The record is an 89-nucleotide sequence from Canis lupus, which matches "mir-8799 microRNA precursor family" in Rfam. Its family is annotated with miRNA-mediated post-transcriptional gene silencing and RISC complex in the Gene Ontology. The family has 7 seed sequences and 20,638 matches in Rfam 15.1. Pairs were carried over by alignment from the consensus structure, which was predicted with RNAalifold. A search with the family's covariance model found it, with a score of 53 bits. The organism belongs to Canis lupus, within Eukaryota.
[Rfam]
RNA sequence: AUGUGAGGCGGGAUCCUGGGCUGUGUCCCGGCGCCCUGUGCCCGGGUCUGCGCUGUCGGAUUCGCGCUCGCGCCGCCCCGCAGCCCCCU
Numbered sequence: 001a002u003g004u005g006a007g008g009c010g011g012g013a014u015c016c017u018g019g020g021c022u023g024u025g026u027c028c029c030g031g032c033g034c035c036c037u038g039u040g041c042c043c044g045g046g047u048c049u050g051c052g053c054u055g056u057c058g059g060a061u062u063c064g065c066g067c068u069c070g071c072g073c074c075g076c077c078c079c080g081c082a083g084c085c086c087c088c089u
Stems, first nucleotide, its partner, number of pairs: 003086001005084001008081002010078003015075001016072001019069002022066004026060003029055006038048001040047002